Drosophila rox2 ncRNA: a 72-nucleotide sequence from Drosophila willistoni. Its family is annotated with dosage compensation complex in the Gene Ontology. The base pairs follow the family's consensus structure, which is taken from published work. Rfam 15.1 lists 11 matches to the family in 10 species. A reference for the family is Park et al. (2007), "An evolutionarily conserved domain of roX2 RNA is sufficient for induction of H4-Lys16 acetylation on the Drosophila X chromosome", Genetics. It is one of the family's seed sequences. The organism belongs to Sophophora, within Eukaryota.
RNA sequence: AAAAGGCAUGUAAAAUGUUGCAAAAAAAAAAAAAAAAAAAAAAAAAAAAUGGUAACGUUAUACGCGCCUUAA
Numbered sequence: 001a002a003a004a005g006g007c008a009u010g011u012a013a014a015a016u017g018u019u020g021c022a023a024a025a026a027a028a029a030a031a032a033a034a035a036a037a038a039a040a041a042a043a044a045a046a047a048a049a050u051g052g053u054a055a056c057g058u059u060a061u062a063c064g065c066g067c068c069u070u071a072a
Stems, first nucleotide, its partner, number of pairs: 003070003007066001009064004014059008